The family of this 323-nucleotide RNA sequence from Flavobacterium album is "Bacterial RNase P class A". NCBI's taxonomy places the organism under Bacteria, Pseudomonadati, Flavobacteriia, Flavobacteriaceae, Flavobacterium. The match comes from Rfam's covariance-model search (184 bits). Ribonuclease P (RNase P) is a ubiquitous endoribonuclease, found in archaea, bacteria and eukarya as well as chloroplasts and mitochondria.
RNA sequence: CCAGCAGGCCGCCUUAUCGCGUUCUAACCACAGAGCGAGGAAAGUCCGGACACCAGAGGGCAGCAUAGCGGGUAACGCCCGUCACUGCGGGAUGCAGAACCGCGGGAGGACAAGUGCAACAGAAAGUAUGUACAGGUAAUGCUGUAGUGAAACCAGGUAAACUCUAUGCGGUGAAAUGCCAUGUACACCGGCUAUAUGUAGGACGGCCCGUCCGAUGCCGGGGGGUAGGCAGAUAGAGCCAUUCAGUAAUGAAUGGUCCAGAUAAAUGAUAAGGGCCGCGUCGUUGACGGGCACAGAAUCCGGCUUACAGGCCUGCUUUAUUU
Numbered sequence: 001c002c003a004g005c006a007g008g009c010c011g012c013c014u015u016a017u018c019g020c021g022u023u024c025u026a027a028c029c030a031c032a033g034a035g036c037g038a039g040g041a042a043a044g045u046c047c048g049g050a051c052a053c054c055a056g057a058g059g060g061c062a063g064c065a066u067a068g069c070g071g072g073u074a075a076c077g078c079c080c081g082u083c084a085c086u087g088c089g090g091g092a093u094g095c096a097g098a099a100c101c102g103c104g105g106g107a108g109g110a111c112a113a114g115u116g117c118a119a120c121a122g123a124a125a126g127u128a129u130g131u132a133c134a135g136g137u138a139a140u141g142c143u144g145u146a147g148u149g150a151a152a153c154c155a156g157g158u159a160a161a162c163u164c165u166a167u168g169c170g171g172u173g174a175a176a177u178g179c180c181a182u183g184u185a186c187a188c189c190g191g192c193u194a195u196a197u198g199u200a201g202g203a204c205g206g207c208c209c210g211u212c213c214g215a216u217g218c219c220g221g222g223g224g225g226u227a228g229g230c231a232g233a234u235a236g237a238g239c240c241a242u243u244c245a246g247u248a249a250u251g252a253a254u255g256g257u258c259c260a261g262a263u264a265a266a267u268g269a270u271a272a273g274g275g276c277c278g279c280g281u282c283g284u285u286g287a288c289g290g291g292c293a294c295a296g297a298a299u300c301c302g303g304c305u306u307a308c309a310g311g312c313c314u315g316c317u318u319u320a321u322u323u
Base pairs, nucleotide, nucleotide: 003317004316005315006314007313008312009311010310011308012274013273014272015271016270017269018268020037021036022035023034024033025032042306043305044304046303047302048301049300050299051173052172053171054170058209059208060207061206063169064168065167066166067165068082069081070080071079072078083108085105086104087103088102089101090100109164110163114162115161116158117157131146132145133144134143135142177231178230179229180228188221189220190219191218192217201213202212203211204210238257239256240255241254242253243252244251245250